mir-130 microRNA precursor family: an 87-nucleotide RNA from Sphenodon punctatus. Rfam links the family to the GO terms RISC complex and miRNA-mediated post-transcriptional gene silencing. The family has 9 seed sequences and 2,580 matches in Rfam 15.1. On this family, see Lagos-Quintana et al., Curr Biol 2002: "Identification of tissue-specific microRNAs from mouse".
RNA sequence: GCCGCGUUACCGGAUUUUUUACAUUGUGGCUAUUAUUGCAGCUAUUUACUUCAAUGGCUGCAAUGUAAAAAAUCCGGUAACGCGGCC
Numbered sequence: 001g002c003c004g005c006g007u008u009a010c011c012g013g014a015u016u017u018u019u020u021a022c023a024u025u026g027u028g029g030c031u032a033u034u035a036u037u038g039c040a041g042c043u044a045u046u047u048a049c050u051u052c053a054a055u056g057g058c059u060g061c062a063a064u065g066u067a068a069a070a071a072a073u074c075c076g077g078u079a080a081c082g083c084g085g086c087c
Stems, first nucleotide, its partner, number of pairs: 001087001003085001005082006012075008022065013